[Rfam]
A member of the RNA family "Brucella sRNA CI27" from Sinorhizobium terangae, 161 nucleotides long.
It scores 70 bits against the family's covariance model.
Lineage of the source: Bacteria > Pseudomonadati > Pseudomonadota > Rhizobiaceae > Sinorhizobium.
RNA sequence: CCGGGAGUUAGUGCAUGUCGCCCAAAAGUGUGCAGCGGUUUUUGGACAACGACAUGCAUAAAAACAAUGACCUAAAGCGCGUCGCAUGAGUCCGAUUGAACGCAACGCGCUUUAGGGCAAUUUAUGCAUCGAUCCGAAGCGCUUGCAACAUGUACUUGCGC
Numbered sequence: 001c002c003g004g005g006a007g008u009u010a011g012u013g014c015a016u017g018u019c020g021c022c023c024a025a026a027a028g029u030g031u032g033c034a035g036c037g038g039u040u041u042u043u044g045g046a047c048a049a050c051g052a053c054a055u056g057c058a059u060a061a062a063a064a065c066a067a068u069g070a071c072c073u074a075a076a077g078c079g080c081g082u083c084g085c086a087u088g089a090g091u092c093c094g095a096u097u098g099a100a101c102g103c104a105a106c107g108c109g110c111u112u113u114a115g116g117g118c119a120a121u122u123u124a125u126g127c128a129u130c131g132a133u134c135c136g137a138a139g140c141g142c143u144u145g146c147a148a149c150a151u152g153u154a155c156u157u158g159c160g161c
Stems, first nucleotide, its partner, number of pairs: 013057008022045008060157002064153003068119002071116012084103002087100001125147004
For this family Rfam cites "Identification of novel sRNAs in Brucella abortus 2308" (Dong et al., FEMS Microbiol Lett, 2014).
Rfam classes the family as a small RNA.